[Rfam]
This 80-nucleotide RNA sequence from Nannospalax galili belongs to the Rfam family "mir-3473 microRNA precursor family".
RNA sequence: ACCGCUGAGCCAUCUCUCCAGCCCCAAGAUUAAAUAUUUUUAAAAAGAAAUCUUGGGGGCUGGAGAGAUGGCUCAGUGGU
Number, nucleotide and partner (000 for none) at each position: 001a000002c079003c078004g077005c076006u075007g074008a073009g072010c071011c070012a069013u068014c067015u066016c065017u064018c063019c062020a061021g060022c059023c058024c057025c000026a000027a000028g000029a000030u000031u000032a000033a000034a000035u000036a000037u000038u000039u000040u000041u000042a000043a000044a000045a000046a000047g000048a000049a000050a000051u000052c000053u000054u000055g000056g000057g024058g023059g022060c021061u020062g019063g018064a017065g016066a015067g014068a013069u012070g011071g010072c009073u008074c007075a006076g005077u004078g003079g002080u000

The match comes from Rfam's covariance-model search (82 bits).